This 171-nucleotide sequence from Sedimentibacter hydroxybenzoicus belongs to the Rfam family "Group II catalytic intron D1-D4-3". It scores 155 bits against the family's covariance model. Its family is annotated with Group II intron splicing in the Gene Ontology. Group II introns are found in rRNA, tRNA and mRNA of organelles in fungi, plants and protists, and also in mRNA in bacteria. The organism belongs to Sedimentibacter hydroxybenzoicus, within Bacteria.
RNA sequence: UCCAUCGUGAGGUGGAAUCUGAAGGAAGGUGUAGGCAAACCUCUGGUCUGACGAACAGAAAUCACAUGAGGCUAAGGAUAUGGAUAAGACUGCCAAACAAGUCAAAGUCCAAUAACUACUCGGAAAUAUCUUUAGUAGAUGUGGCAGAUAGAUGGAGGGAAAGAUUGCGUU
Dot-bracket structure: ((((((....))))))...........(((((...(...(((((((((((...........(((((....(((.(((((((((((..((((........))))...))))...............))))))).)))...))))))))))...))))))....)...)))))
Numbered sequence: 001u002c003c004a005u006c007g008u009g010a011g012g013u014g015g016a017a018u019c020u021g022a023a024g025g026a027a028g029g030u031g032u033a034g035g036c037a038a039a040c041c042u043c044u045g046g047u048c049u050g051a052c053g054a055a056c057a058g059a060a061a062u063c064a065c066a067u068g069a070g071g072c073u074a075a076g077g078a079u080a081u082g083g084a085u086a087a088g089a090c091u092g093c094c095a096a097a098c099a100a101g102u103c104a105a106a107g108u109c110c111a112a113u114a115a116c117u118a119c120u121c122g123g124a125a126a127u128a129u130c131u132u133u134a135g136u137a138g139a140u141g142u143g144g145c146a147g148a149u150a151g152a153u154g155g156a157g158g159g160a161a162a163g164a165u166u167g168c169g170u171u
Stems, first nucleotide, its partner, number of pairs: 001016006028171005036163001040158006046149005062144005071136003075132007082110004088103004